[Rfam]
This 65-nucleotide sequence from Mus musculus belongs to the Rfam family "Small nucleolar RNA SNORD58".
By type it is a C/D-box small nucleolar RNA.
For this family Rfam cites "Purified box C/D snoRNPs are able to reproduce site-specific 2'-O-methylation of target RNA in vitro" (Galardi et al., Mol Cell Biol, 2002).
snoRNA U58 is found in introns 1, 3 and 6 of the ribosomal protein RPL17 gene in humans.
Pairs were carried over by alignment from the consensus structure, which was predicted with PFOLD.

RNA sequence: CUGCAGUGAUGACUAUCUUAGGACACCUUUGGAUUUACCGUGAAAAGAAGUAACCUCUGAGCAGC
Numbered sequence: 001c002u003g004c005a006g007u008g009a010u011g012a013c014u015a016u017c018u019u020a021g022g023a024c025a026c027c028u029u030u031g032g033a034u035u036u037a038c039c040g041u042g043a044a045a046a047g048a049a050g051u052a053a054c055c056u057c058u059g060a061g062c063a064g065c
Stems, first nucleotide, its partner, number of pairs: 001064004
Dot-bracket structure: ((((........................................................)))).